FMN riboswitch aptamer (RFN element): a 142-nucleotide RNA from Aurantimicrobium minutum.

RNA sequence: CAACGCGCUUCGGGGUCAGUGAAAAUCUGAGCCGGCGGUGAAAGUCCGCGACCCUCAUACAAAAGCCACCCGGCUGGAGGAUGAGGUUGAUUCGGUGAAAUUCCGAAACCGACGGUUAAAGUCCGGAUGGGAGAACGCGCGC
Numbered sequence: 001c002a003a004c005g006c007g008c009u010u011c012g013g014g015g016u017c018a019g020u021g022a023a024a025a026u027c028u029g030a031g032c033c034g035g036c037g038g039u040g041a042a043a044g045u046c047c048g049c050g051a052c053c054c055u056c057a058u059a060c061a062a063a064a065g066c067c068a069c070c071c072g073g074c075u076g077g078a079g080g081a082u083g084a085g086g087u088u089g090a091u092u093c094g095g096u097g098a099a100a101u102u103c104c105g106a107a108a109c110c111g112a113c114g115g116u117u118a119a120a121g122u123c124c125g126g127a128u129g130g131g132a133g134a135a136c137g138c139g140c141g142c
Stems, first nucleotide, its partner, number of pairs: 004139004009134002017029003031122002033111002035049004044109002053086006091107005113125003
About this RNA: The source organism's lineage runs through Bacteria, Actinomycetota, Actinomycetes, Microbacteriaceae and Aurantimicrobium. Rfam 15.1 lists 6,230 matches to the family in 5,120 species.